The family of this 124-nucleotide RNA sequence from Bradyrhizobium sp. STM 3843 is "Repression of heat shock gene expression (ROSE) element". Gene Ontology terms of the family: regulation of translation and response to temperature stimulus. This family represents a 5' UTR cis-regulatory element found in heat shock mRNAs and is known as the ROSE (repression of heat shock gene expression) element. The ROSE element is a negative regulator of heat shock gene expression. The match comes from Rfam's covariance-model search (58 bits).
RNA sequence: CCGGGCGCCUGUCGGGCCCGGCGAACUGCCUGGGCGCAGGACCGGUCCCGUACCAACCAGGUCUGGCACCGGCCUUGCGCUCCUUCGUAUCCAUCUUGCUCUCAGGAGGACCUGGCUAUGAGGA
Numbered sequence: 001c002c003g004g005g006c007g008c009c010u011g012u013c014g015g016g017c018c019c020g021g022c023g024a025a026c027u028g029c030c031u032g033g034g035c036g037c038a039g040g041a042c043c044g045g046u047c048c049c050g051u052a053c054c055a056a057c058c059a060g061g062u063c064u065g066g067c068a069c070c071g072g073c074c075u076u077g078c079g080c081u082c083c084u085u086c087g088u089a090u091c092c093a094u095c096u097u098g099c100u101c102u103c104a105g106g107a108g109g110a111c112c113u114g115g116c117u118a119u120g121a122g123g124a
Stems, first nucleotide, its partner, number of pairs: 001021006008015002032082009084122006091115003096110002099108003